[Rfam]
RNA sequence: GGGCUGGCUUUAGCUCAAUGGUUCCUUCGAAUACAAUGCUUACCGAUCACUCUUGCUCACCUGCAUAAGAGUGGCUUGAGACUCGUGGGCGCCUUCCAGCCCUUUA
Dot-bracket structure: .((((((.....((((.((((....(((((.............................................)))))..)))))))).....)))))).....
Numbered sequence: 001g002g003g004c005u006g007g008c009u010u011u012a013g014c015u016c017a018a019u020g021g022u023u024c025c026u027u028c029g030a031a032u033a034c035a036a037u038g039c040u041u042a043c044c045g046a047u048c049a050c051u052c053u054u055g056c057u058c059a060c061c062u063g064c065a066u067a068a069g070a071g072u073g074g075c076u077u078g079a080g081a082c083u084c085g086u087g088g089g090c091g092c093c094u095u096c097c098a099g100c101c102c103u104u105u106a
Stems, first nucleotide, its partner, number of pairs: 002101006013090004018086004026080005
Rfam assigns this 106-nucleotide RNA from Myotis myotis to the family "Vault RNA". Taxonomically the source falls in Myotis (Eukaryota, Chordata, Tetrapoda, Theria). It scores 67 bits against the family's covariance model.